[Rfam]
RNA sequence: UGACAAAUGUUAUGAAGGAACUAUUGGUGUGAUGUGUUCUACUCGUAACCCAUAUCACAGCCGAUAGUUACUUCACUACGUCUGUCG
Numbered sequence: 001u002g003a004c005a006a007a008u009g010u011u012a013u014g015a016a017g018g019a020a021c022u023a024u025u026g027g028u029g030u031g032a033u034g035u036g037u038u039c040u041a042c043u044c045g046u047a048a049c050c051c052a053u054a055u056c057a058c059a060g061c062c063g064a065u066a067g068u069u070a071c072u073u074c075a076c077u078a079c080g081u082c083u084g085u086c087g
Stems, first nucleotide, its partner, number of pairs: 003085003007081004016073003019069004024064002026061001028059009

mir-2944 microRNA precursor family: an 87-nucleotide RNA from Oryctes borbonicus. A search with the family's covariance model found it, with a score of 56 bits.